[Rfam]
RNA sequence: UGGACAGAUUAUUGUAUUCGACAGUAUUCACGGCGUGAAAUAGGGGAUUACACUGUUUUUAAAACGGAAAGUGAAUUAAUUAACAU
Numbered sequence: 001u002g003g004a005c006a007g008a009u010u011a012u013u014g015u016a017u018u019c020g021a022c023a024g025u026a027u028u029c030a031c032g033g034c035g036u037g038a039a040a041u042a043g044g045g046g047a048u049u050a051c052a053c054u055g056u057u058u059u060u061a062a063a064a065c066g067g068a069a070a071g072u073g074a075a076u077u078a079a080u081u082a083a084c085a086u
Base pairs, nucleotide, nucleotide: 014086015085017083018082020081021080024077026076027075028074029073030072031071034066035065036064037059038058039057040056041055042054043053
RNA: MIR6152 microRNA precursor family
Organism: Nicotiana tabacum